[Rfam]
RNA sequence: AGCCUGAUGGUGUAAUGGUAGCACAACUGGUUUUGGUCCAGUCAGUCGGGGUUCGAAUCCCUGUCGGGCUG
Numbered sequence: 001a002g003c004c005u006g007a008u009g010g011u012g013u014a015a016u017g018g019u020a021g022c023a024c025a026a027c028u029g030g031u032u033u034u035g036g037u038c039c040a041g042u043c044a045g046u047c048g049g050g051g052u053u054c055g056a057a058u059c060c061c062u063g064u065c066g067g068g069c070u071g
Base pairs, nucleotide, nucleotide: 001070002069003068004067005066006065007064010024011023012022013021026042027041028040029039030038047063048062049061050060051059
Shown here is a 71-nucleotide sequence from Pelagicoccus mobilis, a member of the family "tRNA". Lineage of the source: Bacteria > Pseudomonadati > Verrucomicrobiota > Pelagicoccaceae > Pelagicoccus. The base pairs follow the family's consensus structure, which is taken from published work. The match comes from Rfam's covariance-model search (61 bits).